[Rfam]
This 88-nucleotide RNA sequence from Scaptodrosophila lebanonensis belongs to the Rfam family "mir-46/mir-47/mir-281 microRNA precursor family". The family's consensus secondary structure was predicted with RNAalifold. For this family Rfam cites "The small RNA profile during Drosophila melanogaster development" (Aravin et al., Dev Cell, 2003). Its family is annotated with miRNA-mediated post-transcriptional gene silencing and RISC complex in the Gene Ontology.
RNA sequence: CGAAUAAAUGAAUAAAGAGAGCUGUCCGUCGACAGUCCAGAUACCAAUUUAAUACUGUCAUGGAAUUGCUCUCUUUGUAGAUAUUCGG
Numbered sequence: 001c002g003a004a005u006a007a008a009u010g011a012a013u014a015a016a017g018a019g020a021g022c023u024g025u026c027c028g029u030c031g032a033c034a035g036u037c038c039a040g041a042u043a044c045c046a047a048u049u050u051a052a053u054a055c056u057g058u059c060a061u062g063g064a065a066u067u068g069c070u071c072u073c074u075u076u077g078u079a080g081a082u083a084u085u086c087g088g
Stems, first nucleotide, its partner, number of pairs: 014076005020070003025064004031059003035055002